[Rfam]
RNA sequence: AUGGAAUUCUGCUACAGAUAUAAAUCCAUCCAUGGGUCCUAAAAAGCAUGGGGUUGGAGUGAGGGCUUCAUCACCCUCACUCUGCUCCUACAUUCAACUGUUUGCCUUUGCAUAGUCAUUUACCUCAGCUCAUGAAGAAGAAGCACAUUAAUUCUCUUUUAAGUGGUACUGGUCUUUGGCUAAAGCAUGGCAAACCGGCAAGUCAGAAAACGGCAUCAGAUAUUGAAGUAUUUU
Numbered sequence: 001a002u003g004g005a006a007u008u009c010u011g012c013u014a015c016a017g018a019u020a021u022a023a024a025u026c027c028a029u030c031c032a033u034g035g036g037u038c039c040u041a042a043a044a045a046g047c048a049u050g051g052g053g054u055u056g057g058a059g060u061g062a063g064g065g066c067u068u069c070a071u072c073a074c075c076c077u078c079a080c081u082c083u084g085c086u087c088c089u090a091c092a093u094u095c096a097a098c099u100g101u102u103u104g105c106c107u108u109u110g111c112a113u114a115g116u117c118a119u120u121u122a123c124c125u126c127a128g129c130u131c132a133u134g135a136a137g138a139a140g141a142a143g144c145a146c147a148u149u150a151a152u153u154c155u156c157u158u159u160u161a162a163g164u165g166g167u168a169c170u171g172g173u174c175u176u177u178g179g180c181u182a183a184a185g186c187a188u189g190g191c192a193a194a195c196c197g198g199c200a201a202g203u204c205a206g207a208a209a210a211c212g213g214c215a216u217c218a219g220a221u222a223u224u225g226a227a228g229u230a231u232u233u234u
Stems, first nucleotide, its partner, number of pairs: 056086002100195006119184004219232003

A member of the RNA family "Early nodulin 40" from Castanea mollissima, 234 nucleotides long. Rfam links the family to the GO term nodulation. The family's RNA type in Rfam is non-coding RNA gene. The organism belongs to Castanea, within Eukaryota. The literature on the family includes a 2007 paper in Nucleic Acids Res by Gultyaev and Roussis, "Identification of conserved secondary structures and expansion segments in enod40 RNAs reveals new enod40 homologues in plants". It scores 103 bits against the family's covariance model.